[Rfam]
RNA: Small Cajal body specific RNA 15
Organism: Anolis carolinensis
RNA sequence: UUGGAGGACCAAGAAAGUAGAACCAGUGAAGUCAUUUGGCUCUACUGAUACUAUCCUCCUAAAUUAAAUGGUAGAUGAACAAGGUCCUGUCUAUGACAUAUAGCAUAGCCUUACUACUAUCUGCCAACAAUA
Numbered sequence: 001u002u003g004g005a006g007g008a009c010c011a012a013g014a015a016a017g018u019a020g021a022a023c024c025a026g027u028g029a030a031g032u033c034a035u036u037u038g039g040c041u042c043u044a045c046u047g048a049u050a051c052u053a054u055c056c057u058c059c060u061a062a063a064u065u066a067a068a069u070g071g072u073a074g075a076u077g078a079a080c081a082a083g084g085u086c087c088u089g090u091c092u093a094u095g096a097c098a099u100a101u102a103g104c105a106u107a108g109c110c111u112u113a114c115u116a117c118u119a120u121c122u123g124c125c126a127a128c129a130a131u132a
Stems, first nucleotide, its partner, number of pairs: 003059006011049001018044004023039002025036004070125008082112003086108001